[Rfam]
RNA: Small nucleolar RNA snoR31/Z110/Z27
RNA sequence: GUUGUCAAAUGAUGAUAAAACGAAAUUAAUCUUAGGACACCUUUGGACACAGCUUUUAUAGCUGUGGGUGAAAAUAAUUUUAAUCUGAUGAUGAC
Numbered sequence: 001g002u003u004g005u006c007a008a009a010u011g012a013u014g015a016u017a018a019a020a021c022g023a024a025a026u027u028a029a030u031c032u033u034a035g036g037a038c039a040c041c042u043u044u045g046g047a048c049a050c051a052g053c054u055u056u057u058a059u060a061g062c063u064g065u066g067g068g069u070g071a072a073a074a075u076a077a078u079u080u081u082a083a084u085c086u087g088a089u090g091a092u093g094a095c
Stems, first nucleotide, its partner, number of pairs: 001095007046050001